About this RNA: Rfam assigns this 132-nucleotide RNA from Castor canadensis to the family "Small nucleolar RNA SNORA61".
RNA sequence: GACCUCUGGUUCCCUUUCCCAUUGGAUCUGAACACUGGUCUUGGUGGUCGUAAAAGAAGGGAAAGUGAUAUUAAAUCUGGCCUCAGAGCAUUGCAGCCUGACAUACAGCAUGUGGGCUAGUUUCAAACAGGA
Numbered sequence: 001g002a003c004c005u006c007u008g009g010u011u012c013c014c015u016u017u018c019c020c021a022u023u024g025g026a027u028c029u030g031a032a033c034a035c036u037g038g039u040c041u042u043g044g045u046g047g048u049c050g051u052a053a054a055a056g057a058a059g060g061g062a063a064a065g066u067g068a069u070a071u072u073a074a075a076u077c078u079g080g081c082c083u084c085a086g087a088g089c090a091u092u093g094c095a096g097c098c099u100g101a102c103a104u105a106c107a108g109c110a111u112g113u114g115g116g117c118u119a120g121u122u123u124c125a126a127a128c129a130g131g132a
Stems, first nucleotide, its partner, number of pairs: 003060003007056001019047005025040004077120007092110003

Record summary:
From the family's description: ACA61 is a member of the H/ACA class of snoRNA that guide the sites of modification of uridines to pseudouridines. A search with the family's covariance model found it, with a score of 130 bits. Taxonomically the source falls in Castor (Eukaryota, Craniata, Gnathostomata, Tetrapoda).